[Rfam]
RNA sequence: GCCGAGCUCGGUAACGUGAGCUUGUCACCAGAGUUGGGGCAUUGGGUUGAUUGAACAUUGAGCUUGCUGAGCUGCUCGGUUUAUUGGUUGCAUUUGUCUGGCCCGCCCGUUCCAAGCAAUGAGAUUGAACAUAGUAGGCCGUCCUAAAGGGUGGGCUACUGUGUUCCUAGAAUGGAGGGCAACGCGUGAGGCUGGCUUCACAGAGCAGCGACAACCUCCUGCUUCUUGCAGUGGAAGGAUAACGGGCCGUCGCGACCUUGGGCCAAACGAGCAGUUGGGCCGCUUCAAUUGGACAAUCAACCCC
Numbered sequence: 001g002c003c004g005a006g007c008u009c010g011g012u013a014a015c016g017u018g019a020g021c022u023u024g025u026c027a028c029c030a031g032a033g034u035u036g037g038g039g040c041a042u043u044g045g046g047u048u049g050a051u052u053g054a055a056c057a058u059u060g061a062g063c064u065u066g067c068u069g070a071g072c073u074g075c076u077c078g079g080u081u082u083a084u085u086g087g088u089u090g091c092a093u094u095u096g097u098c099u100g101g102c103c104c105g106c107c108c109g110u111u112c113c114a115a116g117c118a119a120u121g122a123g124a125u126u127g128a129a130c131a132u133a134g135u136a137g138g139c140c141g142u143c144c145u146a147a148a149g150g151g152u153g154g155g156c157u158a159c160u161g162u163g164u165u166c167c168u169a170g171a172a173u174g175g176a177g178g179g180c181a182a183c184g185c186g187u188g189a190g191g192c193u194g195g196c197u198u199c200a201c202a203g204a205g206c207a208g209c210g211a212c213a214a215c216c217u218c219c220u221g222c223u224u225c226u227u228g229c230a231g232u233g234g235a236a237g238g239a240u241a242a243c244g245g246g247c248c249g250u251c252g253c254g255a256c257c258u259u260g261g262g263c264c265a266a267a268c269g270a271g272c273a274g275u276u277g278g279g280c281c282g283c284u285u286c287a288a289u290u291g292g293a294c295a296a297u298c299a300a301c302c303c304c
Stems, first nucleotide, its partner, number of pairs: 001040003004023007028037003044303010056291002058288003061284003068278001070276008078264006086256001088255003099249007107238002110236005116229004121224003125221001127166011139154006174219005185210003192203003
Dot-bracket structure: ((((((((((......)))))))....(((....))))))...((((((((((..((((((((....(.((((((((((((((..(.(((........(((((((.((.(((((.((((.(((.(.(((((((((((.((((((....)))))).))))))))))).......(((((......(((....(((......)))....)))....))))).)))).))))..)))))))....)))))))...))))..))))))....)))))))).)...))).))).))..)))))))))).

The record is a 304-nucleotide sequence from Dorcoceras hygrometricum, which matches "Plant signal recognition particle RNA" in Rfam. The literature on the family includes a 2002 paper in Curr Opin Struct Biol by Wild et al., "Towards the structure of the mammalian signal recognition particle". The match comes from Rfam's covariance-model search (227 bits). Taxonomically the source falls in Dorcoceras (Eukaryota, Tracheophyta, Spermatophyta, Trichosporeae). Its Rfam clan is "SRP clan".